The family of this 110-nucleotide RNA from Acetomicrobium mobile is "TPP riboswitch aptamer (THI element)". Rfam's curators write: Vitamin B(1) in its active form thiamin pyrophosphate (TPP) is an essential coenzyme that is synthesised by coupling of pyrimidine and thiazole moieties in bacteria. Taxonomically the source falls in Acetomicrobium mobile (Bacteria, Thermotogati, Synergistia, Acetomicrobium).
RNA sequence: CUAGUAUCCUGGGGGAGUCGGUUAACCGACUGAGAGGAAGCUUGAGGCUGCUUCGACCCCUAGAACCUGAUCCGGGUCAUGCCGGCGUAGGGAAGGUACUAGCUUUAAUC
Numbered sequence: 001c002u003a004g005u006a007u008c009c010u011g012g013g014g015g016a017g018u019c020g021g022u023u024a025a026c027c028g029a030c031u032g033a034g035a036g037g038a039a040g041c042u043u044g045a046g047g048c049u050g051c052u053u054c055g056a057c058c059c060c061u062a063g064a065a066c067c068u069g070a071u072c073c074g075g076g077u078c079a080u081g082c083c084g085g086c087g088u089a090g091g092g093a094a095g096g097u098a099c100u101a102g103c104u105u106u107a108a109u110c
Stems, first nucleotide, its partner, number of pairs: 008096003011060004017030005037054005066091004072085004
A search with the family's covariance model found it, with a score of 79 bits.
The base pairs follow the family's consensus structure, which is taken from published work.